Small nucleolar RNA SNORA40: a 123-nucleotide sequence from Otolemur garnettii. A search with the family's covariance model found it, with a score of 78 bits. From the family's description: The snoRNA ACA 40 belongs to the H/ACA family of snoRNAs and guides the pseudouridylation of 28S rRNA subunit at position U4565. The organism belongs to Otolemur, within Eukaryota. The family's consensus secondary structure was predicted with RNAalifold.
[Rfam]
RNA sequence: AGCACUUGUGAUAGUUUUGUCUAAUGUGUGGGUAAAAAAUGACAGGUGCAAAAUAUGAAUCCUCUUUUGCAACCCAGAACUUAUUGUGCAGUGUGACUUUUGAUACAUAGAAAUAGAAAUGUU
Dot-bracket structure: .((((((((.(...((((((....(....).))))))..).)))))))).........((..(..(((......(((((.((((........)))).)))))........)))..)..))...